[Rfam]
RNA sequence: GGUAGUAGCAAAUAUUCAAAUGAGAACUUUGAAGGCCGAAGAGGGGAAAGGUUCCAUGUGAGCGGCACUUGCACAUGGGUUAGUCGAUCCUAAGAGACGGGGAAGCCCGUCCGACAGCGCGUUCGCGCGCGAGCCCGAAAGGGAAUCGGGUUAAAAUUCCUGAGCCGGGACGUGGCGGGCUGACGGCAACGUUAGGGAGUCCGGAGGCGUCGGCGGGGGGCCUCGGGAAGAGUUAUCUUUUUCUGUUUAACAGCCCGCCCACCACAGAAAGCUUGACUUAGUCGGAGGUAGGGUCCAGCGGCUGGAAGAGCACCGCACGUCGCGUGGUGUCCGGUGCGCCCCGGCGGCCCCUUGAAAAUCCGGAGGGACCCAGAGUGCCUCCCACGCCCGGUCGUACUCAUAACCGCAUCAGGGUCUCCAAGGUGAACAGCCUGCAGUCGA
Numbered sequence: 001g002g003u004a005g006u007a008g009c010a011a012a013u014a015u016u017c018a019a020a021u022g023a024g025a026a027c028u029u030u031g032a033a034g035g036c037c038g039a040a041g042a043g044g045g046g047a048a049a050g051g052u053u054c055c056a057u058g059u060g061a062g063c064g065g066c067a068c069u070u071g072c073a074c075a076u077g078g079g080u081u082a083g084u085c086g087a088u089c090c091u092a093a094g095a096g097a098c099g100g101g102g103a104a105g106c107c108c109g110u111c112c113g114a115c116a117g118c119g120c121g122u123u124c125g126c127g128c129g130c131g132a133g134c135c136c137g138a139a140a141g142g143g144a145a146u147c148g149g150g151u152u153a154a155a156a157u158u159c160c161u162g163a164g165c166c167g168g169g170a171c172g173u174g175g176c177g178g179g180c181u182g183a184c185g186g187c188a189a190c191g192u193u194a195g196g197g198a199g200u201c202c203g204g205a206g207g208c209g210u211c212g213g214c215g216g217g218g219g220g221c222c223u224c225g226g227g228a229a230g231a232g233u234u235a236u237c238u239u240u241u242u243c244u245g246u247u248u249a250a251c252a253g254c255c256c257g258c259c260c261a262c263c264a265c266a267g268a269a270a271g272c273u274u275g276a277c278u279u280a281g282u283c284g285g286a287g288g289u290a291g292g293g294u295c296c297a298g299c300g301g302c303u304g305g306a307a308g309a310g311c312a313c314c315g316c317a318c319g320u321c322g323c324g325u326g327g328u329g330u331c332c333g334g335u336g337c338g339c340c341c342c343g344g345c346g347g348c349c350c351c352u353u354g355a356a357a358a359u360c361c362g363g364a365g366g367g368a369c370c371c372a373g374a375g376u377g378c379c380u381c382c383c384a385c386g387c388c389c390g391g392u393c394g395u396a397c398u399c400a401u402a403a404c405c406g407c408a409u410c411a412g413g414g415u416c417u418c419c420a421a422g423g424u425g426a427a428c429a430g431c432c433u434g435c436a437g438u439c440g441a
Base pairs, nucleotide, nucleotide: 015033016032017031018030019029020028034439035438036437043419044418045417046416049398050397054078055077056076057075058074059073063071064070085394086393087392089142090141094136096111097110098109100108101107102106118129119128120127146163147162148161149160150159166390167389168388169387171386172385173384174383175382177379182193183192184191185190200364201363202362203361204360205359209348210347211346212345214343215342218341219340220339221338223334224333225332226247227246229244230243231242251304252303253302254301255300261294262293263292266289273285274284275283276282311329312328313327314326315325316324404414405413421433422432423431424430